RNA sequence: CAGGAUCAGUGAUGCAACUAUUAAAACUGCGUUAUCUUUCUGCAACCUUUUAAGGUGCUGAAGAACACAUUACCUGCUGAGAUCCGUG
Numbered sequence: 001c002a003g004g005a006u007c008a009g010u011g012a013u014g015c016a017a018c019u020a021u022u023a024a025a026a027c028u029g030c031g032u033u034a035u036c037u038u039u040c041u042g043c044a045a046c047c048u049u050u051u052a053a054g055g056u057g058c059u060g061a062a063g064a065a066c067a068c069a070u071u072a073c074c075u076g077c078u079g080a081g082a083u084c085c086g087u088g
Stems, first nucleotide, its partner, number of pairs: 001088002003085004